[Rfam]
RNA sequence: CGAGAGAACUAUUGUUAAGGAACUCGGCAAAAUGACCCCGUAACUUCGGGAGAAGGGGUGCCAUCGAAAGAUGGCCGCAGUGAAAAGGCCCAGGCGACUGUUUAGCAAAAACACAGGUCUCUGCGAAAGCGAAAGCUGAAGUAUAGGGGCUGACGCCUGCCCGGUGCUGGAAGGUUAAGGGGAGAGCUUAGCGUGAGCGAAGGUUUGAACUUAAGCCCCAGUAAACGGCGGCCGUAACUAUAACGGUCCUAAGGUAGCGAAAUUCCUUGUCAGGUAAGUUCUGACCCGCACGAAAGGCGUAACGAUCUGGGCACUGUCUCAACAAUAGACUCG
Numbered sequence: 001c002g003a004g005a006g007a008a009c010u011a012u013u014g015u016u017a018a019g020g021a022a023c024u025c026g027g028c029a030a031a032a033u034g035a036c037c038c039c040g041u042a043a044c045u046u047c048g049g050g051a052g053a054a055g056g057g058g059u060g061c062c063a064u065c066g067a068a069a070g071a072u073g074g075c076c077g078c079a080g081u082g083a084a085a086a087g088g089c090c091c092a093g094g095c096g097a098c099u100g101u102u103u104a105g106c107a108a109a110a111a112c113a114c115a116g117g118u119c120u121c122u123g124c125g126a127a128a129g130c131g132a133a134a135g136c137u138g139a140a141g142u143a144u145a146g147g148g149g150c151u152g153a154c155g156c157c158u159g160c161c162c163g164g165u166g167c168u169g170g171a172a173g174g175u176u177a178a179g180g181g182g183a184g185a186g187c188u189u190a191g192c193g194u195g196a197g198c199g200a201a202g203g204u205u206u207g208a209a210c211u212u213a214a215g216c217c218c219c220a221g222u223a224a225a226c227g228g229c230g231g232c233c234g235u236a237a238c239u240a241u242a243a244c245g246g247u248c249c250u251a252a253g254g255u256a257g258c259g260a261a262a263u264u265c266c267u268u269g270u271c272a273g274g275u276a277a278g279u280u281c282u283g284a285c286c287c288g289c290a291c292g293a294a295a296g297g298c299g300u301a302a303c304g305a306u307c308u309g310g311g312c313a314c315u316g317u318c319u320c321a322a323c324a325a326u327a328g329a330c331u332c333g
Stems, first nucleotide, its partner, number of pairs: 001333004009328008018319003035059005044049001060075006076080001088312007095304002099113003116151008124141001128137003154299004159229003164226002166222005173217003179211002184206005191198002230248006249253001259286001269285006
RNA: Bacterial large subunit ribosomal RNA, nucleotides 1676 to 2008